[Rfam]
Nucleotides: 064
Stems, first nucleotide, its partner, number of pairs: 001063003004059003008056006017047002020044004025039002
Number, partner (000 for none) and nucleotide at each position: 001063c002062u003061u004059a005058c006057g007000u008056u009055g010054a011053g012052c013051c014000a015000c016000g017047c018046g019000c020044a021043c022042a023041a024000u025039a026038c027000a028000u029000g030000a031000c032000g033000a034000g035000u036000c037000a038026g039025u040000u041023u042022u043021g044020u045000u046018c047017g048000u049000u050000c051013g052012g053011c054010u055009c056008g057006c058005g059004u060000u061003a062002a063001g064000c